[Rfam]
Rfam assigns this 173-nucleotide RNA from Candidatus Doolittlea endobia to the family "SraG RNA". This RNA was discovered in E. coli during a large scale screen. Evidence was found for specific cleavage of this RNA. Its family is annotated with mRNA binding and sRNA-mediated gene silencing in the Gene Ontology. The literature on the family includes a 2001 paper in Curr Biol by Argaman et al., "Novel small RNA-encoding genes in the intergenic regions of Escherichia coli". NCBI's taxonomy places the organism under Bacteria, Pseudomonadota, Enterobacteriaceae, ant, tsetse, mealybug, aphid, etc. endosymbionts, Candidatus Doolittlea.

RNA sequence: CUUCUCAUCGGAUCCUCGCGACUAAUGCGAACCUUAUCUUAACGAAUAAAGUUUCUUAUUGCCUUGCGAACUUCAGCAAUGGAAGAGUUUAUUUGUCGUUCAUCUCCGUUCGGAAAUGACCGACUACAGGAUGAGCGUUGCCUAGAAGAAGGGGGCCCAUACGGCCCCCUUCU
Numbered sequence: 001c002u003u004c005u006c007a008u009c010g011g012a013u014c015c016u017c018g019c020g021a022c023u024a025a026u027g028c029g030a031a032c033c034u035u036a037u038c039u040u041a042a043c044g045a046a047u048a049a050a051g052u053u054u055c056u057u058a059u060u061g062c063c064u065u066g067c068g069a070a071c072u073u074c075a076g077c078a079a080u081g082g083a084a085g086a087g088u089u090u091a092u093u094u095g096u097c098g099u100u101c102a103u104c105u106c107c108g109u110u111c112g113g114a115a116a117u118g119a120c121c122g123a124c125u126a127c128a129g130g131a132u133g134a135g136c137g138u139u140g141c142c143u144a145g146a147a148g149a150a151g152g153g154g155g156c157c158c159a160u161a162c163g164g165c166c167c168c169c170u171u172c173u
Stems, first nucleotide, its partner, number of pairs: 001085004006081002010077001017068004022061001024060004152168006